The family of this 76-nucleotide RNA sequence from Ameiurus melas is "mir-7563 microRNA precursor family".
[Rfam]
RNA sequence: ACUGCAUACUUACCUACUAUAUAGUAGCUGAAAUACAUGUGUAUCUCCUACUAUGUAGCAGGCAAGUAUGCGGUUU
Numbered sequence: 001a002c003u004g005c006a007u008a009c010u011u012a013c014c015u016a017c018u019a020u021a022u023a024g025u026a027g028c029u030g031a032a033a034u035a036c037a038u039g040u041g042u043a044u045c046u047c048c049u050a051c052u053a054u055g056u057a058g059c060a061g062g063c064a065a066g067u068a069u070g071c072g073g074u075u076u
Base pairs, nucleotide, nucleotide: 001074002073003072004071005070006069007068008067009066010065011064013062014061015060017058018057019056020055021054022053023052024051025050026049027048030045031044033042034041035040

Rfam links the family to the GO terms miRNA-mediated post-transcriptional gene silencing and RISC complex.